[Rfam]
RNA: Small nucleolar RNA SNORD53/SNORD92
Organism: Hylia prasina
RNA sequence: UUGCUGUGAUGAUAACCUGCUUGGUUUUGCUUGCUGCUGAUGUGCAGUGGAGACACUUCCACUUGGCUGUCUGAGCAG
Numbered sequence: 001u002u003g004c005u006g007u008g009a010u011g012a013u014a015a016c017c018u019g020c021u022u023g024g025u026u027u028u029g030c031u032u033g034c035u036g037c038u039g040a041u042g043u044g045c046a047g048u049g050g051a052g053a054c055a056c057u058u059c060c061a062c063u064u065g066g067c068u069g070u071c072u073g074a075g076c077a078g
Base pairs, nucleotide, nucleotide: 001078002077003076004075